[Rfam]
RNA sequence: CUGACGGGCGUGUCCGGGUCAAUUGCGGACUGCAACACCCGAUCUCCCUCGUCGUUCCCUCCGGAAUGGAGGUCGAGGAGGGGGAGCGCGUGACCGUCAG
Numbered sequence: 001c002u003g004a005c006g007g008g009c010g011u012g013u014c015c016g017g018g019u020c021a022a023u024u025g026c027g028g029a030c031u032g033c034a035a036c037a038c039c040c041g042a043u044c045u046c047c048c049u050c051g052u053c054g055u056u057c058c059c060u061c062c063g064g065a066a067u068g069g070a071g072g073u074c075g076a077g078g079a080g081g082g083g084g085a086g087c088g089c090g091u092g093a094c095c096g097u098c099a100g
Stems, first nucleotide, its partner, number of pairs: 001100005008091006015041004023035005043085005053078001055077002
A member of the RNA family "L4-Archaeoglobi ribosomal protein leades", 100 nucleotides long. For this family Rfam cites "Discovery of 20 novel ribosomal leader candidates in bacteria and archaea" (Eckert and Weinberg, BMC Microbiol, 2020). It is one of the family's seed sequences. Rfam classes the family as a cis-regulatory leader.